[Rfam]
RNA sequence: UGUAAAUGAUGAAGUAUACAUAUUUAUUACAUUUGUGAUUGAAGGUAGUACUAAGUCAUCUUAAAUAAGGUAAUAGUAAUUAACUUAUCAACUUUUUUUGGGGUGUGGGUGGGAUAAUUUAUUUUGAUGGGGAAGGGAGUGAGGUAGUGUGAAUGUGGAUGAGUGAUGUUACCUUGGCCGGUGGAUAGGGGGUGCUGAAUUCAUGUCUUUGCUGACAUCGGAGUGCAUCUGAGGCCUGUCACUGACUCAAAGGCCUCAGUGUGACAUGGCUGAUGAUUAAAGCCUCAGAAUCUCCCACCUGCCCCGGCUUUCCAACACCUCUGUCUCGACCAGAGGCUGUGCUCUGAGCAUGCCUCUGGAGUCUGAUCCAA
Numbered sequence: 001u002g003u004a005a006a007u008g009a010u011g012a013a014g015u016a017u018a019c020a021u022a023u024u025u026a027u028u029a030c031a032u033u034u035g036u037g038a039u040u041g042a043a044g045g046u047a048g049u050a051c052u053a054a055g056u057c058a059u060c061u062u063a064a065a066u067a068a069g070g071u072a073a074u075a076g077u078a079a080u081u082a083a084c085u086u087a088u089c090a091a092c093u094u095u096u097u098u099u100g101g102g103g104u105g106u107g108g109g110u111g112g113g114a115u116a117a118u119u120u121a122u123u124u125u126g127a128u129g130g131g132g133a134a135g136g137g138a139g140u141g142a143g144g145u146a147g148u149g150u151g152a153a154u155g156u157g158g159a160u161g162a163g164u165g166a167u168g169u170u171a172c173c174u175u176g177g178c179c180g181g182u183g184g185a186u187a188g189g190g191g192g193u194g195c196u197g198a199a200u201u202c203a204u205g206u207c208u209u210u211g212c213u214g215a216c217a218u219c220g221g222a223g224u225g226c227a228u229c230u231g232a233g234g235c236c237u238g239u240c241a242c243u244g245a246c247u248c249a250a251a252g253g254c255c256u257c258a259g260u261g262u263g264a265c266a267u268g269g270c271u272g273a274u275g276a277u278u279a280a281a282g283c284c285u286c287a288g289a290a291u292c293u294c295c296c297a298c299c300u301g302c303c304c305c306g307g308c309u310u311u312c313c314a315a316c317a318c319c320u321c322u323g324u325c326u327c328g329a330c331c332a333g334a335g336g337c338u339g340u341g342c343u344c345u346g347a348g349c350a351u352g353c354c355u356c357u358g359g360a361g362u363c364u365g366a367u368c369c370a371a
Stems, first nucleotide, its partner, number of pairs: 001370002004367001237266006243258003248253001
Shown here is a 371-nucleotide sequence from Albula glossodonta, a member of the family "Small Cajal body-specific RNA 7". The match comes from Rfam's covariance-model search (72 bits). The base pairs follow the family's consensus structure. Taxonomically the source falls in Albula (Eukaryota, Eumetazoa, Deuterostomia, Albulinae). It is annotated as a small Cajal body RNA.